[Rfam]
RNA sequence: GCUUGAUAAUGGCAAAUUUAACGAAAUUUGAUGACGCAAAGCUAUGGGACUAAGGUGAAUUUUACUAUUGAUAGCCAGUUACCAAA
Number, nucleotide and partner (000 for none) at each position: 001g000002c000003u000004u000005g000006a000007u000008a000009a000010u000011g000012g037013c036014a000015a000016a000017u000018u031019u030020a029021a028022c000023g000024a000025a000026a000027u000028u021029u020030g019031a018032u000033g000034a000035c000036g013037c012038a000039a000040a080041g079042c078043u077044a000045u000046g076047g075048g072049a000050c070051u000052a000053a000054g000055g065056u064057g063058a062059a000060u000061u000062u058063u057064a056065c055066u000067a000068u000069u000070g050071a000072u048073a000074g000075c047076c046077a043078g042079u041080u040081a000082c000083c000084a000085a000086a000